L31-Actinobacteria ribosomal protein leader: a 44-nucleotide RNA from Lentzea tibetensis. The organism belongs to Lentzea, within Bacteria. Clan: Ribosomal Protein L31 Leader clan.
[Rfam]
RNA sequence: CCGGCUCCGGUUCACCCUGUGCAACAGCUAGGGACCCGGCGGCC
Numbered sequence: 001c002c003g004g005c006u007c008c009g010g011u012u013c014a015c016c017c018u019g020u021g022c023a024a025c026a027g028c029u030a031g032g033g034a035c036c037c038g039g040c041g042g043c044c
Stems, first nucleotide, its partner, number of pairs: 003044003007039004015033005021028002